[Rfam]
RNA: Small nucleolar RNA snoR27
Organism: Arabis nemorensis
RNA sequence: UUGGGAUCUAUGGUAUCUGUGGUUAAUUAUAACUGUGUUGAAGAUUCUGCAGAAUCUCUUACAAGGAGUUGAAGAUUAAACCAUUAGAGAACCUGAGAUCCAAU
Number, nucleotide and partner (000 for none) at each position: 001u000002u103003g000004g101005g100006a099007u098008c097009u096010a000011u000012g000013g000014u000015a000016u000017c000018u000019g000020u000021g000022g000023u000024u000025a000026a000027u000028u000029a000030u000031a000032a000033c000034u000035g000036u000037g000038u000039u000040g000041a000042a000043g000044a000045u000046u000047c000048u000049g000050c000051a000052g000053a000054a000055u000056c000057u000058c000059u000060u000061a000062c000063a000064a000065g000066g000067a000068g000069u000070u000071g000072a000073a000074g000075a000076u000077u000078a000079a000080a000081c000082c000083a000084u000085u000086a000087g000088a000089g000090a000091a000092c000093c000094u000095g000096a009097g008098a007099u006100c005101c004102a000103a002104u000